[Rfam]
RNA sequence: CCUGCCGGAACGCCGAGCACUGCCACCGGUCAGGAGUCACGAUCCAGGCAGUGACGGGGGAACCACUCGUGACGGGCUCGCACUGCCGAGCCCUUGGGGUGAAGCCGCAACAGCGGCCGGGCUACUCCAGCCCGAACCCGACAGCUCACCUCGCAGGCGACCGGAGAACACGA
Numbered sequence: 001c002c003u004g005c006c007g008g009a010a011c012g013c014c015g016a017g018c019a020c021u022g023c024c025a026c027c028g029g030u031c032a033g034g035a036g037u038c039a040c041g042a043u044c045c046a047g048g049c050a051g052u053g054a055c056g057g058g059g060g061a062a063c064c065a066c067u068c069g070u071g072a073c074g075g076g077c078u079c080g081c082a083c084u085g086c087c088g089a090g091c092c093c094u095u096g097g098g099g100u101g102a103a104g105c106c107g108c109a110a111c112a113g114c115g116g117c118c119g120g121g122c123u124a125c126u127c128c129a130g131c132c133c134g135a136a137c138c139c140g141a142c143a144g145c146u147c148a149c150c151u152c153g154c155a156g157g158c159g160a161c162c163g164g165a166g167a168a169c170a171c172g173a
Stems, first nucleotide, its partner, number of pairs: 011159004018053007055153005064096002097139003105116004119133004
The family of this 173-nucleotide RNA from Cellulosimicrobium arenosum is "c-di-AMP riboswitch aptamer (ydaO/yuaA leader)". Rfam describes the family as follows. This family represents a conserved RNA structure found upstream of the ydaO and yuaA genes in Bacillus subtilis and related genes in other bacteria. Its family is annotated with regulation of gene expression and cyclic-di-AMP binding in the Gene Ontology.